[Rfam]
RNA sequence: UAACUAGCCAAGCAUACGCGAGUUGCAAGCAUUGGAAGUUUAAGUCUCGUCA
Dot-bracket structure: .[.....[[.[[[....(((((......]]..]]]...]......)))))..
Shown here is a 52-nucleotide RNA sequence from Polerovirus PLRV, a member of the family "Exoribonuclease-resistant RNA (xrRNA) plant-infecting virus (class 3)". It is one of the family's seed sequences. Rfam's curators write: Exoribonuclease-resistant RNA (xrRNA) plant-infecting virus (class 3) is a ncRNA that was reported in Plant viruses. Pairs were carried over by alignment from the consensus structure, which is taken from published work. The organism belongs to Polerovirus PLRV, within Viruses. A reference for the family is Gezelle et al. (2024), "The pseudoknot structure of a viral RNA reveals a conserved mechanism for programmed exoribonuclease resistance", bioRxiv [Preprint].